[Rfam]
RNA sequence: GCGAUGAGCUAUUUUGUAUAAGUCGAAAAUAUGCUUUUAAAGCUAAACGUUGAAUGUGGUCAACGGUUUUCGCCACAAAAAGGGUAAGGCACCUGUUUUUCAGGUGCC
Numbered sequence: 001g002c003g004a005u006g007a008g009c010u011a012u013u014u015u016g017u018a019u020a021a022g023u024c025g026a027a028a029a030u031a032u033g034c035u036u037u038u039a040a041a042g043c044u045a046a047a048c049g050u051u052g053a054a055u056g057u058g059g060u061c062a063a064c065g066g067u068u069u070u071c072g073c074c075a076c077a078a079a080a081a082g083g084g085u086a087a088g089g090c091a092c093c094u095g096u097u098u099u100u101c102a103g104g105u106g107c108c
Base pairs, nucleotide, nucleotide: 014078015077016076017075024072025071026070027069028068029067030066033043034042048065049064051062052061053060088108089107090106091105092104093103094102095101
The record is a 108-nucleotide sequence from Aquibacillus salsiterrae, which matches "BsrF" in Rfam. It is annotated as a small RNA. It scores 79 bits against the family's covariance model.